This 77-nucleotide sequence from Scyliorhinus torazame belongs to the Rfam family "mir-9/mir-79 microRNA precursor family". For this family Rfam cites "Identification of novel genes coding for small expressed RNAs" (Lagos-Quintana et al., Science, 2001). Gene Ontology terms of the family: miRNA-mediated post-transcriptional gene silencing and RISC complex. Rfam 15.1 lists 5,647 matches to the family in 934 species. The source organism's lineage runs through Eukaryota, Gnathostomata, Galeomorphii, Galeoidea and Scyliorhinus.
RNA sequence: UAGUUGUUAUCUUUGGUUAUCUAGCUGUAUGAGUGUAUUUGCCCGUCAUAAAGCUAGAUAACCGAAAGUAAAAACUG
Dot-bracket structure: (((((.((((.(((((((((((((((.(((((.............))))).))))))))))))))).)))).)))))